[Rfam]
RNA sequence: AAGACUAUACUUUCAGGGAUCAUUUCUGUAGUUGGUCACUAGAGGAGAGUGAUCGCUCCUGAUCGGCAUCACAAACCACGAGGAGGAGCGAGGUGUUCUCUCCUGAGCGCGAAGCGGGCGAGCGGUGCUGCUUGGGCAGUUGCCUCUGGUCAUUGAUGACCGUUCCCGGCUCCCUUGUUGGGGUUUGGUAGGGAGAGAACACGGGCUGAGUGGU
Numbered sequence: 001a002a003g004a005c006u007a008u009a010c011u012u013u014c015a016g017g018g019a020u021c022a023u024u025u026c027u028g029u030a031g032u033u034g035g036u037c038a039c040u041a042g043a044g045g046a047g048a049g050u051g052a053u054c055g056c057u058c059c060u061g062a063u064c065g066g067c068a069u070c071a072c073a074a075a076c077c078a079c080g081a082g083g084a085g086g087a088g089c090g091a092g093g094u095g096u097u098c099u100c101u102c103c104u105g106a107g108c109g110c111g112a113a114g115c116g117g118g119c120g121a122g123c124g125g126u127g128c129u130g131c132u133u134g135g136g137c138a139g140u141u142g143c144c145u146c147u148g149g150u151c152a153u154u155g156a157u158g159a160c161c162g163u164u165c166c167c168g169g170c171u172c173c174c175u176u177g178u179u180g181g182g183g184u185u186u187g188g189u190a191g192g193g194a195g196a197g198a199a200c201a202c203g204g205g206c207u208g209a210g211u212g213g214u
Stems, first nucleotide, its partner, number of pairs: 002040002006035001009032003014028005051063001053062002075214005093202012107163003117151003124144003127140005166188002168185003172182003
RNA: Small nucleolar RNA U3